[Rfam]
RNA sequence: GUUCCUUGAAAGACAUGGGUAGUGAGAUGUUCAUUUAUCUCCAUCUCACUACCUUGUCUUUGACGGAAAA
Numbered sequence: 001g002u003u004c005c006u007u008g009a010a011a012g013a014c015a016u017g018g019g020u021a022g023u024g025a026g027a028u029g030u031u032c033a034u035u036u037a038u039c040u041c042c043a044u045c046u047c048a049c050u051a052c053c054u055u056g057u058c059u060u061u062g063a064c065g066g067a068a069a070a
Stems, first nucleotide, its partner, number of pairs: 009061007017054003021050009